A member of the RNA family "Phenylalanine leader peptide" from Erwinia billingiae, 134 nucleotides long. The match comes from Rfam's covariance-model search (116 bits). The family has 71 seed sequences and 379 matches in Rfam 15.1. For this family Rfam cites "Two groups of phenylalanine biosynthetic operon leader peptides genes: a high level of apparently incidental frameshifting in decoding Escherichia coli pheL" (Gurvich et al., Nucleic Acids Res, 2010). Rfam classes the family as a cis-regulatory leader. NCBI's taxonomy places the organism under Bacteria, Pseudomonadati, Pseudomonadota, Erwiniaceae, Erwinia.
RNA sequence: AAUGCACAAACGACCGUUCUUCUUCGCAUUCUUUUUUACCUUCUUUACCUUCCCCUGAUUGGGAGGCAAUUCGUCGUGUAAGAAUGAAUGCGAAGACGAACUACAAAGCCUCCCCAGCGGGAGGCUUUUUUUUU
Numbered sequence: 001a002a003u004g005c006a007c008a009a010a011c012g013a014c015c016g017u018u019c020u021u022c023u024u025c026g027c028a029u030u031c032u033u034u035u036u037u038a039c040c041u042u043c044u045u046u047a048c049c050u051u052c053c054c055c056u057g058a059u060u061g062g063g064a065g066g067c068a069a070u071u072c073g074u075c076g077u078g079u080a081a082g083a084a085u086g087a088a089u090g091c092g093a094a095g096a097c098g099a100a101c102u103a104c105a106a107a108g109c110c111u112c113c114c115c116a117g118c119g120g121g122a123g124g125c126u127u128u129u130u131u132u133u134u
Stems, first nucleotide, its partner, number of pairs: 016101004021096011033084002036081004051064004065075003105128010